[Rfam]
RNA sequence: CCGGGGGAUCACGCCCCCGGCUACAAUAUUCCGCUCCUUCGGAGCU
Numbered sequence: 001c002c003g004g005g006g007g008a009u010c011a012c013g014c015c016c017c018c019g020g021c022u023a024c025a026a027u028a029u030u031c032c033g034c035u036c037c038u039u040c041g042g043a044g045c046u
Stems, first nucleotide, its partner, number of pairs: 001020007033045005
The family of this 46-nucleotide RNA sequence from Lacipirellula parvula is "Acido-Lenti-1 RNA".